[Rfam]
RNA sequence: CCUCCUUUUCUUGGCAGGCACAGGCCUUGCCAUGCCUGGUUCUGUAAUGACUGGAGGAAAAGGAAUGCCUGCCCAGUGUUCUGUCUUCGGUGCCAGCGGUUUUGCCAUCUGCUGGUUCUAUCCUCAAGCACUGGGACAAAA
Numbered sequence: 001c002c003u004c005c006u007u008u009u010c011u012u013g014g015c016a017g018g019c020a021c022a023g024g025c026c027u028u029g030c031c032a033u034g035c036c037u038g039g040u041u042c043u044g045u046a047a048u049g050a051c052u053g054g055a056g057g058a059a060a061a062g063g064a065a066u067g068c069c070u071g072c073c074c075a076g077u078g079u080u081c082u083g084u085c086u087u088c089g090g091u092g093c094c095a096g097c098g099g100u101u102u103u104g105c106c107a108u109c110u111g112c113u114g115g116u117u118c119u120a121u122c123c124u125c126a127a128g129c130a131c132u133g134g135g136a137c138a139a140a141a
Base pairs, nucleotide, nucleotide: 001057002056003055004054005053015044016043017042018041022037023036024035025034074133075132076131077130078129079128093115094114095113096112097111098110099109